[Rfam]
RNA sequence: UUUUCGGCUUCUGGCUAAAUAUCAGCUGGUAAUUCUGGGGUUGUUGCCCCCAGGCUAUCAGUUGGUAUACAGUUAGAUGUCGAA
Numbered sequence: 001u002u003u004u005c006g007g008c009u010u011c012u013g014g015c016u017a018a019a020u021a022u023c024a025g026c027u028g029g030u031a032a033u034u035c036u037g038g039g040g041u042u043g044u045u046g047c048c049c050c051c052a053g054g055c056u057a058u059c060a061g062u063u064g065g066u067a068u069a070c071a072g073u074u075a076g077a078u079g080u081c082g083a084a
Stems, first nucleotide, its partner, number of pairs: 011076006019068011032056001034054006
Background: Rfam assigns this 84-nucleotide sequence from Papilio xuthus to the family "mir-283 microRNA precursor family". Its Rfam clan is "mir-216 clan". Pairs were carried over by alignment from the consensus structure, which was predicted with WAR. The organism belongs to Papilio, within Eukaryota. It scores 55 bits against the family's covariance model. Its family is annotated with RISC complex and miRNA-mediated post-transcriptional gene silencing in the Gene Ontology.